The family of this 149-nucleotide sequence from Metapseudomonas resinovorans is "PrrF RNA". PrrF RNA is a small RNA involved in iron homeostasis and is found exclusively in Pseudomonas species. The family's RNA type in Rfam is small RNA. NCBI's taxonomy places the organism under Bacteria, Pseudomonadati, Pseudomonadota, Gammaproteobacteria, Metapseudomonas resinovorans.
RNA sequence: UUGACUCGAAAAUGAUAAUCGUUAUUAUUCACACAACUGGUCGCGAGAUCAGCCGGUAAGCUGAGAUUCCAAGCAGUCGGACUCUUCAGAUUAUCUCCUCAUCAGGCUAAUCACGGUUUCGACCCGGCUAAUCGCCGGGUCUUUUUUUG
Numbered sequence: 001u002u003g004a005c006u007c008g009a010a011a012a013u014g015a016u017a018a019u020c021g022u023u024a025u026u027a028u029u030c031a032c033a034c035a036a037c038u039g040g041u042c043g044c045g046a047g048a049u050c051a052g053c054c055g056g057u058a059a060g061c062u063g064a065g066a067u068u069c070c071a072a073g074c075a076g077u078c079g080g081a082c083u084c085u086u087c088a089g090a091u092u093a094u095c096u097c098c099u100c101a102u103c104a105g106g107c108u109a110a111u112c113a114c115g116g117u118u119u120c121g122a123c124c125c126g127g128c129u130a131a132u133c134g135c136c137g138g139g140u141c142u143u144u145u146u147u148u149g
Stems, first nucleotide, its partner, number of pairs: 034055001037052006061089003064085003069079001097106003121141008